[Rfam]
RNA: Small nucleolar RNA snoR31/Z110/Z27
RNA sequence: GUCAUCAAGUGAUGAAAUGUGAAAGUUAUAAUCUUAGGACACCUUCCUACACAGCGUAAGCCAAUGCUGUGAAUGAGAAAAACAUUUCUAUUCUGAUGAUGAU
Numbered sequence: 001g002u003c004a005u006c007a008a009g010u011g012a013u014g015a016a017a018u019g020u021g022a023a024a025g026u027u028a029u030a031a032u033c034u035u036a037g038g039a040c041a042c043c044u045u046c047c048u049a050c051a052c053a054g055c056g057u058a059a060g061c062c063a064a065u066g067c068u069g070u071g072a073a074u075g076a077g078a079a080a081a082a083c084a085u086u087u088c089u090a091u092u093c094u095g096a097u098g099a100u101g102a103u
Stems, first nucleotide, its partner, number of pairs: 001103007